[Rfam]
RNA sequence: UGUCUCCUCCAUGUCUCCAACAUGGAUUCAGCCCGCAACGCUGUUGCGGGCUUUUUCUU
Numbered sequence: 001u002g003u004c005u006c007c008u009c010c011a012u013g014u015c016u017c018c019a020a021c022a023u024g025g026a027u028u029c030a031g032c033c034c035g036c037a038a039c040g041c042u043g044u045u046g047c048g049g050g051c052u053u054u055u056u057c058u059u
Stems, first nucleotide, its partner, number of pairs: 008026007030052008